[Rfam]
RNA sequence: AGUGGGAACACACGGCCGCAAAUCCGACGCGCCGCUCGCUUGAGCAGCUUGGGAUUGCGGUGGUGU
Number, nucleotide and partner (000 for none) at each position: 001a000002g000003u000004g000005g000006g000007a000008a000009c000010a066011c065012a064013c063014g000015g061016c060017c059018g058019c057020a056021a055022a000023u000024c053025c052026g000027a000028c000029g000030c000031g048032c047033c000034g045035c044036u043037c042038g000039c000040u000041u000042g037043a036044g035045c034046a000047g032048c031049u000050u000051g000052g025053g024054a000055u021056u020057g019058c018059g017060g016061u015062g000063g013064u012065g011066u010
RNA: S15-Halobacteria ribosomal protein leader